[Rfam]
RNA sequence: GCCAUACUACGGUGCAAACAGGGUUAAAGUAAACGAUGACCCAUGAGGAACUCUGGGUUAAAAUACGUAUCAAAAUGCAAAUUGCCCCGGCCUGGAAUUUUUCCUCAGGUCAGGAUUUUUU
Numbered sequence: 001g002c003c004a005u006a007c008u009a010c011g012g013u014g015c016a017a018a019c020a021g022g023g024u025u026a027a028a029g030u031a032a033a034c035g036a037u038g039a040c041c042c043a044u045g046a047g048g049a050a051c052u053c054u055g056g057g058u059u060a061a062a063a064u065a066c067g068u069a070u071c072a073a074a075a076u077g078c079a080a081a082u083u084g085c086c087c088c089g090g091c092c093u094g095g096a097a098u099u100u101u102u103c104c105u106c107a108g109g110u111c112a113g114g115a116u117u118u119u120u121u
Stems, first nucleotide, its partner, number of pairs: 001040001003038003010035002014030002041048002057071001059069002086114002089111007
This 121-nucleotide sequence from Sodalis ligni belongs to the Rfam family "Enterobacteria greA leader". The family's RNA type in Rfam is cis-regulatory leader. The organism belongs to Sodalis, within Bacteria. On this family, see Naville and Gautheret, Genome Biol 2010: "Premature terminator analysis sheds light on a hidden world of bacterial transcriptional attenuation". It scores 107 bits against the family's covariance model. The base pairs follow the family's consensus structure, which is taken from published work.